[Rfam]
RNA sequence: UGGCGCAACCCUCUACUCGGAUCGUCCGGCACGUUCCUGCCGGUGAAGGGAACCGCCA
Numbered sequence: 001u002g003g004c005g006c007a008a009c010c011c012u013c014u015a016c017u018c019g020g021a022u023c024g025u026c027c028g029g030c031a032c033g034u035u036c037c038u039g040c041c042g043g044u045g046a047a048g049g050g051a052a053c054c055g056c057c058a
Stems, first nucleotide, its partner, number of pairs: 009050004014045002026043006
RNA: msiK RNA